[Rfam]
RNA: mir-160 microRNA precursor family
RNA sequence: CUCUGCCUGGCUCCCUGAAUGCCAUAUAAGAAGCUUGCCAAUAUCCACAUUUGACGACUUCCUACUUGGCAUUAAAGGAGUCAAGCAGAU
Numbered sequence: 001c002u003c004u005g006c007c008u009g010g011c012u013c014c015c016u017g018a019a020u021g022c023c024a025u026a027u028a029a030g031a032a033g034c035u036u037g038c039c040a041a042u043a044u045c046c047a048c049a050u051u052u053g054a055c056g057a058c059u060u061c062c063u064a065c066u067u068g069g070c071a072u073u074a075a076a077g078g079a080g081u082c083a084a085g086c087a088g089a090u
Stems, first nucleotide, its partner, number of pairs: 002089005008083007016075001018073007027064002